[Rfam]
Nucleotides: 136
Stems, first nucleotide, its partner, number of pairs: 003134008017029003031116002033105002035064004059103002067081003085101005107119003
Number, partner (000 for none) and nucleotide at each position: 001000u002000a003134a004133a005132u006131u007130c008129u009128u010127c011000g012000g013000g014000g015000c016000a017029g018028g019027g020000u021000g022000u023000a024000a025000u026000u027019c028018c029017c030000g031116a032115c033105c034104g035064a036063c037062g038061g039000u040000a041000a042000a043000u044000g045000a046000u047000u048000u049000c050000u051000a052000u053000a054000u055000c056000a057000a058000a059103g060102u061038c062037c063036g064035u065000g066000a067081g068080c069079c070000a071000u072000u073000u074000u075000a076000a077000a078000u079069g080068g081067u082000u083000g084000a085101g086100c087099u088098a089097g090000u091000g092000u093000g094000a095000a096000u097089c098088u099087a100086g101085c102060a103059c104034c105033g106000a107119c108118a109117g110000u111000u112000a113000a114000a115032g116031u117109c118108u119107g120000g121000a122000u123000g124000g125000g126000a127010g128009a129008a130007g131006a132005a133004u134003u135000a136000a
Rfam assigns this 136-nucleotide sequence from Weissella koreensis to the family "FMN riboswitch aptamer (RFN element)". It scores 122 bits against the family's covariance model.